[Rfam]
Rfam assigns this 75-nucleotide RNA from Holothuria leucospilota to the family "Small nucleolar RNA SNORD34". NCBI's taxonomy places the organism under Eukaryota, Bilateria, Holothuroidea, Holothuriidae, Holothuria. Its family is annotated with RNA processing and nucleolus in the Gene Ontology. For this family Rfam cites "The high diversity of snoRNAs in plants: identification and comparative study of 120 snoRNA genes from Oryza sativa" (Chen et al., Nucleic Acids Res, 2003). Pairs were carried over by alignment from the consensus structure, which was predicted with PFOLD.
RNA sequence: ACUUGUCAAUGAUGUGAUUUUUUUUGUACCUACAUUGUUUGAAGAAAAUGAAAUGAACUUUAUACUGAGACAAGU
Number, nucleotide and partner (000 for none) at each position: 001a075002c074003u000004u072005g071006u070007c069008a000009a000010u000011g000012a000013u000014g000015u000016g000017a000018u000019u000020u000021u000022u000023u000024u000025u000026g000027u000028a000029c000030c000031u000032a000033c000034a000035u000036u000037g000038u000039u000040u000041g000042a000043a000044g000045a000046a000047a000048a000049u000050g000051a000052a000053a000054u000055g000056a000057a000058c000059u000060u000061u000062a000063u000064a000065c000066u000067g000068a000069g007070a006071c005072a004073a000074g002075u001